[Rfam]
RNA sequence: CUUUGCUUUCAGCCUCUUUAUGAUGCUGCCUUGUAGAAGCCUUUUCAAGCAGCAUUGUACAGGGCUAUGAUAGCACUG
Numbered sequence: 001c002u003u004u005g006c007u008u009u010c011a012g013c014c015u016c017u018u019u020a021u022g023a024u025g026c027u028g029c030c031u032u033g034u035a036g037a038a039g040c041c042u043u044u045u046c047a048a049g050c051a052g053c054a055u056u057g058u059a060c061a062g063g064g065c066u067a068u069g070a071u072a073g074c075a076c077u078g
Base pairs, nucleotide, nucleotide: 014064015063016062017061019059020058021057022056023055024054025053026052027051028050030049031048032047033046
Source information:
The family of this 78-nucleotide sequence from Albula glossodonta is "mir-103/107 microRNA precursor family". Rfam links the family to the GO terms miRNA-mediated post-transcriptional gene silencing and RISC complex. A search with the family's covariance model found it, with a score of 84 bits. On this family, see Mourelatos et al., Genes Dev 2002: "miRNPs: a novel class of ribonucleoproteins containing numerous microRNAs". Taxonomically the source falls in Albula (Eukaryota, Deuterostomia, Gnathostomata, Albuliformes). This family consists of the mammalian microRNA (miRNA) precursors mir-103 and mir107. Animal miRNAs are transcribed as ~70nt precursors and subsequently processed by the Dicer enzyme to give a ~22nt product. In this case the mature sequence comes from the 3' arm of the precursor. The extents of the hairpin precursors are not generally known and are estimated based on hairpin prediction.